Notes: permuted transfer-messenger RNA: a 212-nucleotide RNA sequence from a Pseudomonadota bacterium. From the family's description: Bacterial tmRNA, also known as 10Sa RNA or SsrA, is named for its dual tRNA and mRNA-like properties. The sequence is in the family's curated seed alignment. The base pairs follow the family's consensus structure, which is taken from published work.
RNA sequence: UGCGAAAACUCCGAUUCAUUAAGGGCUUGUUGGACGGCGGUUCAAUUCCGCCCUGGUCCACCAGAAGGGUUCUAGUCAGCAGAGCGUUUCUGAUGGGCCAGACAUGGCUUCGACAGUGAGCAGAUAGGUUUUGGGGCGACACGUCAGGCGAUCGACGUAAAUGAAGCAAGCAUGUAAAUGCAAACGAUGAAAACUACGCUUUAGCGGCCUAA
Numbered sequence: 001u002g003c004g005a006a007a008a009c010u011c012c013g014a015u016u017c018a019u020u021a022a023g024g025g026c027u028u029g030u031u032g033g034a035c036g037g038c039g040g041u042u043c044a045a046u047u048c049c050g051c052c053c054u055g056g057u058c059c060a061c062c063a064g065a066a067g068g069g070u071u072c073u074a075g076u077c078a079g080c081a082g083a084g085c086g087u088u089u090c091u092g093a094u095g096g097g098c099c100a101g102a103c104a105u106g107g108c109u110u111c112g113a114c115a116g117u118g119a120g121c122a123g124a125u126a127g128g129u130u131u132u133g134g135g136g137c138g139a140c141a142c143g144u145c146a147g148g149c150g151a152u153c154g155a156c157g158u159a160a161a162u163g164a165a166g167c168a169a170g171c172a173u174g175u176a177a178a179u180g181c182a183a184a185c186g187a188u189g190a191a192a193a194c195u196a197c198g199c200u201u202u203a204g205c206g207g208c209c210u211a212a
Stems, first nucleotide, its partner, number of pairs: 001141002014131001017128001026120003030116003036052005053101007142157004